[Rfam]
RNA sequence: AAAACUGUCAGAGGGGAGUAACUUGAGAAUAGUUAUUGAAUGCAUUUAAACCGAUAAUAACUAUUCAACACUUUGUCGUCAUUACGAAGAUAAGUCUUCCGGUAAAGUGGGCAAAAAUAUUGCUAAGUGAGACCUUUGCUAUUAAA
Numbered sequence: 001a002a003a004a005c006u007g008u009c010a011g012a013g014g015g016g017a018g019u020a021a022c023u024u025g026a027g028a029a030u031a032g033u034u035a036u037u038g039a040a041u042g043c044a045u046u047u048a049a050a051c052c053g054a055u056a057a058u059a060a061c062u063a064u065u066c067a068a069c070a071c072u073u074u075g076u077c078g079u080c081a082u083u084a085c086g087a088a089g090a091u092a093a094g095u096c097u098u099c100c101g102g103u104a105a106a107g108u109g110g111g112c113a114a115a116a117a118u119a120u121u122g123c124u125a126a127g128u129g130a131g132a133c134c135u136u137u138g139c140u141a142u143u144a145a146a
Stems, first nucleotide, its partner, number of pairs: 027066012069109010086099005110124005
A member of the RNA family "Manganese Mn2+ riboswitch aptamer (yybP-ykoY)" from Staphylococcus epidermidis, 146 nucleotides long. This RNA was originally discovered in E. coli during a large scale screen and was named SraF. The family was later found to exist upstream of related families of protein genes in many bacteria, including the the yybP and ykoK genes in B. subtilis. The specific functions of these proteins are unknown, but this structured RNA element may be involved in their genetic regulation as a riboswitch.